[Rfam]
RNA: Enterococcus sRNA 68 (Lacto-3 RNA)
Organism: Ligilactobacillus saerimneri
RNA sequence: UGCGAUGAGUCGAGAGGGAUCAGGCAAUACAUUGAGUAUUGUUUUGCUGCGGCAACUAGUGAUUAAACUUUUGAUAAGCGGGGCACAUUAGUCACCGGAUUGUGACGUGUCUGUAGAUUAGUGUUGUGGAGCAC
Numbered sequence: 001u002g003c004g005a006u007g008a009g010u011c012g013a014g015a016g017g018g019a020u021c022a023g024g025c026a027a028u029a030c031a032u033u034g035a036g037u038a039u040u041g042u043u044u045u046g047c048u049g050c051g052g053c054a055a056c057u058a059g060u061g062a063u064u065a066a067a068c069u070u071u072u073g074a075u076a077a078g079c080g081g082g083g084c085a086c087a088u089u090a091g092u093c094a095c096c097g098g099a100u101u102g103u104g105a106c107g108u109g110u111c112u113g114u115a116g117a118u119u120a121g122u123g124u125u126g127u128g129g130a131g132c133a134c
Stems, first nucleotide, its partner, number of pairs: 018064005023043008044055004082111005091106005121134005